[Rfam]
RNA sequence: GGGGGGCAUCAAAGAGAUGAGAUGUUUCCUGAUACAAUCUUCCUAUAAAAAACUCUGUAGUUUCCUUGUAGUACUUGAGCAAGUUUCUGCAAGUCUCGCAUCUCCAGAGACAUGA
Numbered sequence: 001g002g003g004g005g006g007c008a009u010c011a012a013a014g015a016g017a018u019g020a021g022a023u024g025u026u027u028c029c030u031g032a033u034a035c036a037a038u039c040u041u042c043c044u045a046u047a048a049a050a051a052a053c054u055c056u057g058u059a060g061u062u063u064c065c066u067u068g069u070a071g072u073a074c075u076u077g078a079g080c081a082a083g084u085u086u087c088u089g090c091a092a093g094u095c096u097c098g099c100a101u102c103u104c105c106a107g108a109g110a111c112a113u114g115a
Stems, first nucleotide, its partner, number of pairs: 001030003005026006054108003065093007073084003
The record is a 115-nucleotide sequence from Durio zibethinus, which matches "Small nucleolar RNA snoR104" in Rfam. Taxonomically the source falls in Durio (Eukaryota, Streptophyta, eudicotyledons, Gunneridae). A reference for the family is Marker et al. (2002), "Experimental RNomics: identification of 140 candidates for small non-messenger RNAs in the plant Arabidopsis thaliana", Curr Biol. A search with the family's covariance model found it, with a score of 89 bits.